Rfam assigns this 69-nucleotide part of an RNA from Riggia paranensis to the family "Eukaryotic small subunit ribosomal RNA". Rfam's curators put it in the seed alignment. The literature on the family includes a 2001 paper in Science by Yusupov et al., "Crystal structure of the ribosome at 5.5 A resolution". The family is grouped with related families in Rfam's "SSU clan".
RNA sequence: GCUAACCAGCAAUCCGCUCGUGUCACUGGGGACUGAGCGGGAUCCCCCGGGAAACCAGAGUCUUUGAGU
Dot-bracket structure: (((.((..(...((((((((.(((......)))))))))))...)...((....))...)).....)))